Shown here is an 81-nucleotide RNA from Raphanus sativus, a member of the family "Small nucleolar RNA R21".
Lineage of the source: Eukaryota > Euphyllophyta > Mesangiospermae > Brassiceae > Raphanus.
It scores 64 bits against the family's covariance model.
Gene Ontology terms of the family: RNA processing and nucleolus.
The base pairs follow the family's consensus structure, which was predicted with PFOLD.

RNA sequence: AACCCCUAUGAUAACUGAUUACGAUUAAAAUGUUAAAAGUAGUGACUGAUAUCUUUUUGAUGACUUCAGCUCGGAGGGGCU
Numbered sequence: 001a002a003c004c005c006c007u008a009u010g011a012u013a014a015c016u017g018a019u020u021a022c023g024a025u026u027a028a029a030a031u032g033u034u035a036a037a038a039g040u041a042g043u044g045a046c047u048g049a050u051a052u053c054u055u056u057u058u059g060a061u062g063a064c065u066u067c068a069g070c071u072c073g074g075a076g077g078g079g080c081u
Stems, first nucleotide, its partner, number of pairs: 001081001003079004